Background:
c-di-AMP riboswitch aptamer (ydaO/yuaA leader): a 184-nucleotide RNA from Nocardioides dongxiaopingii.
[Rfam]
Nucleotides: 184
Base pairs, nucleotide, nucleotide: 011169012168013167014166018051019050020049021048022047052164053163054162055161056160057159062072063071073149074148075147081126082125083124084123085122086121087120129143130142131141132140
Number, partner (000 for none) and nucleotide at each position: 001000g002000c003000g004000g005000a006000u007000g008000c009000c010000a011169c012168g013167c014166u015000g016000a017000g018051u019050c020049c021048c022047c023000g024000c025000c026000g027000c028000a029000c030000a031000c032000g033000c034000c035000c036000g037000u038000c039000g040000u041000g042000u043000g044000c045000c046000a047022g048021g049020g050019g051018a052164g053163c054162c055161g056160g057159g058000g059000a060000a061000c062072c063071a064000a065000c066000u067000c068000u069000u070000c071063u072062g073149g074148g075147g076000u077000g078000a079000a080000u081126c082125c083124u084123c085122u086121g087120c088000g089000a090000g091000g092000c093000g094000g095000c096000c097000g098000g099000u100000c101000c102000c103000a104000c105000g106000g107000g108000a109000c110000c111000g112000a113000c114000c115000g116000a117000g118000g119000a120087g121086c122085a123084g124083g125082g126081g127000u128000a129143g130142g131141g132140c133000a134000g135000g136000u137000c138000g139000u140132g141131c142130c143129c144000g145000a146000a147075u148074c149073c150000g151000u152000c153000a154000g155000c156000u157000c158000a159057c160056c161055c162054g163053g164052u165000a166014g167013g168012c169011g170000u171000a172000c173000g174000a175000c176000u177000g178000c179000a180000a181000a182000g183000g184000a

Taxonomically the source falls in Nocardioides (Bacteria, Actinomycetes, Propionibacteriales, Nocardioidaceae).